Rfam assigns this 78-nucleotide RNA sequence from Schistosoma mansoni to the family "mir-3492 microRNA precursor family". A search with the family's covariance model found it, with a score of 58 bits. The family has 2 seed sequences and 21,496 matches in Rfam 15.1. Taxonomically the source falls in Schistosoma (Eukaryota, Rhabditophora, Digenea, Schistosomatidae). The base pairs follow the family's consensus structure, which was predicted with RNAalifold. Gene Ontology terms of the family: miRNA-mediated post-transcriptional gene silencing and RISC complex.
[Rfam]
RNA sequence: AGAUUUCUGAAUUCGUGCUGAGAUUUUGUGAGACACCAAUUCACAAAAGUUUAUGAAACUUUCAAGAUCAGUGAAUCG
Numbered sequence: 001a002g003a004u005u006u007c008u009g010a011a012u013u014c015g016u017g018c019u020g021a022g023a024u025u026u027u028g029u030g031a032g033a034c035a036c037c038a039a040u041u042c043a044c045a046a047a048a049g050u051u052u053a054u055g056a057a058a059c060u061u062u063c064a065a066g067a068u069c070a071g072u073g074a075a076u077c078g
Stems, first nucleotide, its partner, number of pairs: 002077005008071001011068003016064002020061003024058007